[Rfam]
RNA sequence: GCGGUUGAGAAGCUUGCGCAUAGGCGCAGUCACAAACGGACACGUUGCGUGUCAAACGUUCACUCUUCAUCGCCUGGGAAGGUCGGAGACACCGUGCACCCGCGAGGGGUAAUCGUCACCGACGAUGCAGUUGGGAACCAGAAAUGCACCGAGCGUCGUGGCUAAACCCCCGAGUCCCAACGGACGGGGCACUGACGAUCGGAUGAAACAGCCCAACAGGUGUGAUUUCAACUCUAAGAUCAAUGCGCAAGCGAAACGGCGCCCGGCAGCCCUUUCGAACUUGAUUCCGACUACUCUCUCGGCCCC
Numbered sequence: 001g002c003g004g005u006u007g008a009g010a011a012g013c014u015u016g017c018g019c020a021u022a023g024g025c026g027c028a029g030u031c032a033c034a035a036a037c038g039g040a041c042a043c044g045u046u047g048c049g050u051g052u053c054a055a056a057c058g059u060u061c062a063c064u065c066u067u068c069a070u071c072g073c074c075u076g077g078g079a080a081g082g083u084c085g086g087a088g089a090c091a092c093c094g095u096g097c098a099c100c101c102g103c104g105a106g107g108g109g110u111a112a113u114c115g116u117c118a119c120c121g122a123c124g125a126u127g128c129a130g131u132u133g134g135g136a137a138c139c140a141g142a143a144a145u146g147c148a149c150c151g152a153g154c155g156u157c158g159u160g161g162c163u164a165a166a167c168c169c170c171c172g173a174g175u176c177c178c179a180a181c182g183g184a185c186g187g188g189g190c191a192c193u194g195a196c197g198a199u200c201g202g203a204u205g206a207a208a209c210a211g212c213c214c215a216a217c218a219g220g221u222g223u224g225a226u227u228u229c230a231a232c233u234c235u236a237a238g239a240u241c242a243a244u245g246c247g248c249a250a251g252c253g254a255a256a257c258g259g260c261g262c263c264c265g266g267c268a269g270c271c272c273u274u275u276c277g278a279a280c281u282u283g284a285u286u287c288c289g290a291c292u293a294c295u296c297u298c299u300c301g302g303c304c305c306c
Stems, first nucleotide, its partner, number of pairs: 001306001003304002008299003013251007022075005039053005084289005092220002098110004112126006130217006149202003252277005258271003
About this RNA:
Rfam assigns this 306-nucleotide RNA from Plasmodiophora brassicae to the family "Nuclear RNase P". The match comes from Rfam's covariance-model search (92 bits). Its family is annotated with ribonuclease P complex, ribonuclease P activity and tRNA processing in the Gene Ontology. A reference for the family is Frank and Pace (1998), "Ribonuclease P: unity and diversity in a tRNA processing ribozyme", Annu Rev Biochem. By type it is a ribozyme. NCBI's taxonomy places the organism under Eukaryota, Sar, Phytomyxea, Plasmodiophoridae, Plasmodiophora.